Rfam assigns this 77-nucleotide RNA sequence from Crocodylus porosus to the family "Mammalian CPEB3 ribozyme". Pairs were carried over by alignment from the consensus structure, which is taken from published work. Rfam's curators write: The mammalian CPEB3 ribozyme is a self cleaving RNA located in the second intron of the CPEB3 gene which belongs to a family of genes regulating messenger RNA polyadenylation.

[Rfam]
RNA sequence: UGUUGCAAGGUCAAGGCCACAGCAGAAGUGCUCACAGUGCGGCCUAGUCUGAUUCCAGCAAAUCUGCAAAUUCUGCU
Numbered sequence: 001u002g003u004u005g006c007a008a009g010g011u012c013a014a015g016g017c018c019a020c021a022g023c024a025g026a027a028g029u030g031c032u033c034a035c036a037g038u039g040c041g042g043c044c045u046a047g048u049c050u051g052a053u054u055c056c057a058g059c060a061a062a063u064c065u066g067c068a069a070a071u072u073c074u075g076c077u
Base pairs, nucleotide, nucleotide: 014045015044016043017042018041021077022076023075024074025073026072027071028040029039030038049066051064052063053062054061